[Rfam]
RNA sequence: UCACUCUGGUUUCUCUUCAAUUGUCGAAUAAAUCUUUCGCCUUUUACUAAAGAUUUCCGUGGAGAGGGACACUCUAAUGAGUCUAAACUAAAUUUUUGUUUAGUGCCUGGUGACAUCU
Numbered sequence: 001u002c003a004c005u006c007u008g009g010u011u012u013c014u015c016u017u018c019a020a021u022u023g024u025c026g027a028a029u030a031a032a033u034c035u036u037u038c039g040c041c042u043u044u045u046a047c048u049a050a051a052g053a054u055u056u057c058c059g060u061g062g063a064g065a066g067g068g069a070c071a072c073u074c075u076a077a078u079g080a081g082u083c084u085a086a087a088c089u090a091a092a093u094u095u096u097u098g099u100u101u102a103g104u105g106c107c108u109g110g111u112g113a114c115a116u117c118u
Base pairs, nucleotide, nucleotide: 003082004081005080006079009070010069011068012067013066014065015064016063017062018061019060030056031055032054033053034052035051036050037049103116104115105114107112